[Rfam]
RNA sequence: GGCGAUAAACGAUCUUCGAAUUAAACCUAUCGGACCCGGGGGCGGUACCCGGCGCCUCCACCUGAGCCCAGGACCGAUGGCCGCAAGGCCGGGGGUCUUGCACUGGUCUCAGGCGGAGGCGAGACAGGAUCGACGAAGGCUAAAGGUUGAUCGUUCGCUCGGCAUGGCUCCGCCGUUAUCGGGCCCUCGCGAGAGUUGCCAACGACACCUUUGCACCGGUGGCGGUGGCCGCGUAA
Number, nucleotide and partner (000 for none) at each position: 001g159002g158003c157004g156005a155006u000007a000008a000009a000010c000011g000012a000013u000014c149015u000016u000017c146018g000019a000020a000021u000022u000023a000024a000025a000026c139027c138028u137029a000030u136031c135032g134033g000034a000035c000036c052037c051038g050039g049040g048041g000042g000043c000044g000045g000046u000047a000048c040049c039050c038051g037052g036053c121054g120055c119056c118057u117058c116059c115060a000061c000062c000063u000064g000065a000066g000067c000068c000069c000070a000071g000072g000073a000074c000075c000076g000077a000078u000079g000080g000081c000082c000083g000084c000085a000086a000087g000088g000089c000090c000091g000092g000093g000094g000095g000096u000097c000098u000099u000100g000101c000102a000103c000104u000105g000106g000107u000108c000109u000110c000111a000112g000113g000114c000115g059116g058117a057118g056119g055120c054121g053122a000123g000124a000125c000126a000127g000128g000129a000130u000131c000132g000133a000134c032135g031136a030137a028138g027139g026140c000141u000142a000143a000144a000145g000146g017147u000148u000149g014150a000151u000152c000153g000154u000155u005156c004157g003158c002159u001160c175161g174162g173163c172164a000165u000166g000167g000168c000169u000170c000171c000172g163173c162174c161175g160176u000177u000178a000179u000180c000181g000182g000183g000184c000185c000186c000187u000188c000189g000190c000191g000192a000193g000194a000195g000196u000197u000198g000199c000200c000201a000202a000203c000204g000205a000206c000207a000208c000209c000210u000211u000212u000213g000214c000215a000216c000217c000218g000219g000220u000221g000222g000223c000224g000225g000226u000227g000228g000229c000230c000231g000232c000233g000234u000235a000236a000